Rfam assigns this 114-nucleotide RNA from Streptomyces gilvosporeus to the family "Glycine riboswitch aptamer".
RNA sequence: GCAGAUCUGAAAAGCGAGCCGCUGCCCGAAGGGGCGGCUCCACCCAAGGUGCAAACCGGGUCCGUUCGCGGGAUCCCGGUGAACCUCUCAGGUUCCGAUGACAGAUGGGGAGAC
Number, nucleotide and partner (000 for none) at each position: 001g000002c109003a000004g000005a106006u105007c104008u103009g102010a000011a000012a000013a000014g000015c000016g040017a039018g038019c037020c036021g035022c034023u033024g000025c000026c000027c000028g000029a000030a000031g000032g000033g023034g022035c021036g020037g019038c018039u017040c016041c000042a093043c092044c091045c000046a088047a000048g000049g087050u000051g085052c000053a000054a000055a080056c079057c078058g077059g076060g075061u000062c000063c000064g000065u000066u000067c000068g000069c000070g000071g000072g000073a000074u000075c060076c059077c058078g057079g056080u055081g000082a000083a000084c000085c051086u000087c049088u046089c000090a000091g044092g043093u042094u000095c000096c000097g000098a000099u000100g000101a000102c009103a008104g007105a006106u005107g000108g000109g002110g000111a000112g000113a000114c000
On this family, see Mandal et al., Science 2004: "A glycine-dependent riboswitch that uses cooperative binding to control gene expression".